[Rfam]
TPP riboswitch aptamer (THI element): a 105-nucleotide RNA sequence from Brachybacterium sp. SGAir0954.
Pairs were carried over by alignment from the consensus structure, which is taken from published work.
NCBI's taxonomy places the organism under Bacteria, Bacillati, Actinomycetota, Actinomycetes, Brachybacterium.
Vitamin B(1) in its active form thiamin pyrophosphate (TPP) is an essential coenzyme that is synthesised by coupling of pyrimidine and thiazole moieties in bacteria.
RNA sequence: AUCCACUGACAGGGGAGCACCGCACGGUGCUGAGAGUGCGCGCAUGCGCAGACCCUCGAACCUGAACCGGGUCAUGCCGGCGGAGGGAGUCGGGAUUUCCGUCGC
Numbered sequence: 001a002u003c004c005a006c007u008g009a010c011a012g013g014g015g016a017g018c019a020c021c022g023c024a025c026g027g028u029g030c031u032g033a034g035a036g037u038g039c040g041c042g043c044a045u046g047c048g049c050a051g052a053c054c055c056u057c058g059a060a061c062c063u064g065a066a067c068c069g070g071g072u073c074a075u076g077c078c079g080g081c082g083g084a085g086g087g088a089g090u091c092g093g094g095a096u097u098u099c100c101g102u103c104g105c
Stems, first nucleotide, its partner, number of pairs: 006093005011056004017030005037050005061086003067080004